[Rfam]
RNA: c-di-AMP riboswitch aptamer (ydaO/yuaA leader)
Organism: Nocardioides piscis
Nucleotides: 195
Base pairs, nucleotide, nucleotide: 011180012179013178014177018066019065020064021063022062023061024060025059026058067175068174069173070172071171072170076114115160116159117158123136124135125134126133139154140153141152142151
Number, partner (000 for none) and nucleotide at each position: 001000g002000c003000c004000c005000g006000g007000g008000c009000a010000a011180c012179g013178c014177c015000g016000a017000g018066u019065c020064c021063u022062g023061c024060c025059c026058g027000c028000c029000c030000g031000g032000a033000g034000c035000g036000g037000a038000c039000c040000c041000c042000c043000u044000g045000a046000u047000a048000c049000c050000a051000c052000g053000a054000u055000g056000u057000u058026c059025g060024g061023g062022c063021a064020g065019g066018a067175g068174u069173g070172g071171g072170g073000a074000c075000c076114c077000a078000c079000a080000g081000g082000u083000u084000c085000c086000a087000c088000u089000g090000c091000c092000g093000g094000c095000c096000g097000c098000a099000g100000c101000c102000a103000g104000c105000g106000g107000a108000c109000g110000g111000c112000u113000c114076g115160g116159g117158g118000u119000g120000a121000a122000g123136c124135c125134a126133c127000c128000a129000c130000c131000a132000g133126g134125u135124g136123g137000c138000g139154g140153a141152g142151c143000a144000c145000u146000u147000u148000c149000c150000a151142g152141c153140u154139c155000c156000a157000a158117c159116c160115c161000g162000a163000c164000a165000g166000c167000u168000c169000a170072c171071c172070u173069c174068a175067c176000a177014g178013g179012c180011g181000u182000g183000g184000g185000a186000a187000a188000g189000g190000a191000c192000u193000u194000u195000g